[Rfam]
This 169-nucleotide RNA from Euroglyphus maynei belongs to the Rfam family "U11 spliceosomal RNA".
RNA sequence: AAGGGAGUUGACCUUUUACCCGUGUGAUUCGGGAAAACAUGAUGGUCGAUGUAUUUUGGGCAAAUCAUUCCCGAUUUGCAUUACACAAAAUACAUUUAGAAUCGUCAUCAAGAGAUUCUGAACUCAGAAUUUUUGUAACAAGUGGAGUUGGGCUGAUUUCGAAUUCAUC
Dot-bracket structure: ....(((((((((..............................))))(((((((((((...........................)))))))))))(((((((..........)))))))))))).........................(...((((...))))...)
It scores 46 bits against the family's covariance model. Pairs were carried over by alignment from the consensus structure, which is taken from published work. The source organism's lineage runs through Eukaryota, Panarthropoda, Acariformes, Astigmata and Euroglyphus.